[Rfam]
RNA sequence: GCAGACUCACUCUGUACUGAACUGCAGUCUUCAGUUCAGGUGCUUUUUCUGUCUGCAAGAGUAAUAGUUCACAGGAGUGACGAUUGCCUUCUUUCUUGUAGAAGGCUGUUACAGUCGCUGCUGGGACAUAGCU
Numbered sequence: 001g002c003a004g005a006c007u008c009a010c011u012c013u014g015u016a017c018u019g020a021a022c023u024g025c026a027g028u029c030u031u032c033a034g035u036u037c038a039g040g041u042g043c044u045u046u047u048u049c050u051g052u053c054u055g056c057a058a059g060a061g062u063a064a065u066a067g068u069u070c071a072c073a074g075g076a077g078u079g080a081c082g083a084u085u086g087c088c089u090u091c092u093u094u095c096u097u098g099u100a101g102a103a104g105g106c107u108g109u110u111a112c113a114g115u116c117g118c119u120g121c122u123g124g125g126a127c128a129u130a131g132c133u
Stems, first nucleotide, its partner, number of pairs: 001056006014043004018038003022034003069124003074119002078117004086106004
Small nucleolar RNA SNORA77: a 133-nucleotide RNA from Balaeniceps rex. The match comes from Rfam's covariance-model search (57 bits). It is annotated as an H/ACA-box small nucleolar RNA. From the family's description: ACA63 (SNORA77) is a member of the H/ACA class of snoRNAs that guide the sites of modification of uridines to pseudouridines. On this family, see Schattner et al., RNA 2006: "A computational screen for mammalian pseudouridylation guide H/ACA RNAs". Rfam 15.1 lists 843 matches to the family in 607 species.